[Rfam]
Nucleotides: 100
Base pairs, nucleotide, nucleotide: 001100002099003098004097005096006095013027014026015025016024029086030085031084032082033081036080038078042073043072044071045070046069047068
Number, partner (000 for none) and nucleotide at each position: 001100c002099c003098u004097c005096u006095g007000g008000a009000a010000a011000g012000c013027g014026g015025g016024g017000a018000c019000c020000c021000g022000u023000u024016c025015c026014c027013c028000c029086g030085c031084c032082g033081a034000a035000g036080g037000u038078g039000a040000a041000a042073g043072c044071c045070c046069g047068c048000g049000c050000c051000g052000c053000g054000u055000c056000c057000c058000g059000u060000a061000c062000g063000g064000g065000g066000c067000g068047g069046c070045g071044g072043g073042u074000g075000a076000a077000g078038c079000u080036c081033u082032c083000a084031g085030g086029c087000g088000c089000c090000g091000a092000u093000g094000a095006c096005a097004g098003a099002g100001g
Description:
The family of this 100-nucleotide sequence from Actinomadura verrucosospora is "Glycine riboswitch aptamer".